[Rfam]
RNA sequence: CCUGUGGAAUGAAAAAACACAAUCCGGUCGGUAGUCCGGAUGCAUCGGUUACAGCGAUGCCAGUAUCCUUCCCUCCUCGGGAUGUCCGUCAUUCCAUUCAAUUAC
Numbered sequence: 001c002c003u004g005u006g007g008a009a010u011g012a013a014a015a016a017a018c019a020c021a022a023u024c025c026g027g028u029c030g031g032u033a034g035u036c037c038g039g040a041u042g043c044a045u046c047g048g049u050u051a052c053a054g055c056g057a058u059g060c061c062a063g064u065a066u067c068c069u070u071c072c073c074u075c076c077u078c079g080g081g082a083u084g085u086c087c088g089u090c091a092u093u094c095c096a097u098u099c100a101a102u103u104a105c
Stems, first nucleotide, its partner, number of pairs: 004097008022041006042060006070082004
A member of the RNA family "azaaromatic riboswitch aptamer (yjdF RNA)" from Sporolactobacillus shoreae, 105 nucleotides long. Lineage of the source: Bacteria > Bacillati > Bacillota > Sporolactobacillaceae > Sporolactobacillus.